[Rfam]
RNA: Mammalian CPEB3 ribozyme
RNA sequence: AAAACUACACAAGGGGCCAUAGCAUAAUGUUUCAUGUUCCAGCUUCUGUCAUAUUUCUACAGAUUUGAAAAUUCUGCU
Numbered sequence: 001a002a003a004a005c006u007a008c009a010c011a012a013g014g015g016g017c018c019a020u021a022g023c024a025u026a027a028u029g030u031u032u033c034a035u036g037u038u039c040c041a042g043c044u045u046c047u048g049u050c051a052u053a054u055u056u057c058u059a060c061a062g063a064u065u066u067g068a069a070a071a072u073u074c075u076g077c078u
Stems, first nucleotide, its partner, number of pairs: 013046005021078004026073002029039001050067002053064004